[Rfam]
RNA: RgsA sRNA
RNA sequence: GACGCCUCGGCCGGGUAUUCCAAAUCCGUUUAAAAAACGGCCGAAUGGUUGUGGACGUUGCAGCAUCUUCGCCAAUACUUCUAGUUACUGGUGCGCGGGUAUCUCCCCCCAAGUACCCCGCCAGUGAAGGUACCGAGGAUCGCGUACCUUAUUGUUACACUCCUAAUGGUCUUGACCCGGAUUCAUCCCCCAGAACCCGG
Numbered sequence: 001g002a003c004g005c006c007u008c009g010g011c012c013g014g015g016u017a018u019u020c021c022a023a024a025u026c027c028g029u030u031u032a033a034a035a036a037a038c039g040g041c042c043g044a045a046u047g048g049u050u051g052u053g054g055a056c057g058u059u060g061c062a063g064c065a066u067c068u069u070c071g072c073c074a075a076u077a078c079u080u081c082u083a084g085u086u087a088c089u090g091g092u093g094c095g096c097g098g099g100u101a102u103c104u105c106c107c108c109c110c111a112a113g114u115a116c117c118c119c120g121c122c123a124g125u126g127a128a129g130g131u132a133c134c135g136a137g138g139a140u141c142g143c144g145u146a147c148c149u150u151a152u153u154g155u156u157a158c159a160c161u162c163c164u165a166a167u168g169g170u171c172u173u174g175a176c177c178c179g180g181a182u183u184c185a186u187c188c189c190c191c192a193g194a195a196c197c198c199g200g
Base pairs, nucleotide, nucleotide: 039171040170041169042168043167087125088124089123090122094120095119097117100115101114102113126153127150128149129148130147131146132145133144134142177200178199179198180197182195183194184193